RNA sequence: UUUAACAAAUGUCUCCGAUCUAAUAUUUCUACGGAAUAUUCUAUGAAAGAUUAGACUGAACACUUAGAGAGUCGUUCACAGGGCCAAGUUGGAAACGUCUUGACCUUCCUUAUUUGUAAAGGGGAUUAUAAACGUUAUGA
Numbered sequence: 001u002u003u004a005a006c007a008a009a010u011g012u013c014u015c016c017g018a019u020c021u022a023a024u025a026u027u028u029c030u031a032c033g034g035a036a037u038a039u040u041c042u043a044u045g046a047a048a049g050a051u052u053a054g055a056c057u058g059a060a061c062a063c064u065u066a067g068a069g070a071g072u073c074g075u076u077c078a079c080a081g082g083g084c085c086a087a088g089u090u091g092g093a094a095a096c097g098u099c100u101u102g103a104c105c106u107u108c109c110u111u112a113u114u115u116g117u118a119a120a121g122g123g124g125a126u127u128a129u130a131a132a133c134g135u136u137a138u139g140a
Base pairs, nucleotide, nucleotide: 003134011126012125013124014123015122016121019055020054021053022052023051024050026048027047028046029045033042034041035040057078058077059076060075061074081106082105083104085102086101087100088099090097091096108116
Dot-bracket structure: ..(.......((((((..((((((.((((...(((....)))..)))).)))))).(((((............)))))..(((.((((.((....)).)))).))).(.......)....)))))).......)......

Notes:
The family of this 140-nucleotide sequence from Holtiella tumoricola is "Molybdenum/Tungsten riboswitch aptamer (Moco RNA motif)". The match comes from Rfam's covariance-model search (81 bits). Lineage of the source: Bacteria > Bacillati > Lachnospirales > Cellulosilyticaceae > Holtiella.